Source information:
This 113-nucleotide RNA sequence from Fictibacillus enclensis belongs to the Rfam family "SAM riboswitch aptamer (S box leader)". A search with the family's covariance model found it, with a score of 77 bits. The organism belongs to Fictibacillus, within Bacteria.
[Rfam]
RNA sequence: AUCUUAUUAAGAGAGGUGGAGGGAAUUGGCCCUAUGAAACCUCGGCAGCGGACUCUUUUCAAUUGAAGAGAACUGUGCCAAAUCCAACAAGCCGCAAGCUUGGAUGAUAAGAG
Numbered sequence: 001a002u003c004u005u006a007u008u009a010a011g012a013g014a015g016g017u018g019g020a021g022g023g024a025a026u027u028g029g030c031c032c033u034a035u036g037a038a039a040c041c042u043c044g045g046c047a048g049c050g051g052a053c054u055c056u057u058u059u060c061a062a063u064u065g066a067a068g069a070g071a072a073c074u075g076u077g078c079c080a081a082a083u084c085c086a087a088c089a090a091g092c093c094g095c096a097a098g099c100u101u102g103g104a105u106g107a108u109a110a111g112a113g
Stems, first nucleotide, its partner, number of pairs: 002112007013043005021032003026087004044079004049075002053070005088102005